[Rfam]
terC RNA: a 60-nucleotide RNA sequence from Paracoccus amoyensis. The source organism's lineage runs through Bacteria, Pseudomonadati, Rhodobacterales, Paracoccaceae and Paracoccus.

RNA sequence: UACGGCGACCGGGCCCCUCUGGCGAAUGUGGCGGCGCAUUCGUGAUGUCGGCUGUCGAAA
Dot-bracket structure: .....((.((((.........((((((((......))))))))....)))).))......
The family's RNA type in Rfam is cis-regulatory element. The base pairs follow the family's consensus structure, which is taken from published work. It scores 50 bits against the family's covariance model.